[Rfam]
RNA: MIR6152 microRNA precursor family
Organism: Nicotiana sylvestris
RNA sequence: UGGACAGAUUAUUGUAUUCGACUGUAUUCACGGCAUGGGGAUUACACUAUUUUUAAACGAAAAGUGAAUCAAUUAAUAUAAUAGACACCU
Numbered sequence: 001u002g003g004a005c006a007g008a009u010u011a012u013u014g015u016a017u018u019c020g021a022c023u024g025u026a027u028u029c030a031c032g033g034c035a036u037g038g039g040g041a042u043u044a045c046a047c048u049a050u051u052u053u054u055a056a057a058c059g060a061a062a063a064g065u066g067a068a069u070c071a072a073u074u075a076a077u078a079u080a081a082u083a084g085a086c087a088c089c090u
Base pairs, nucleotide, nucleotide: 002089003088009084010083011082012081013080014079015078017076018075020074021073023071024070026069027068028067029066030065031064034059036057037047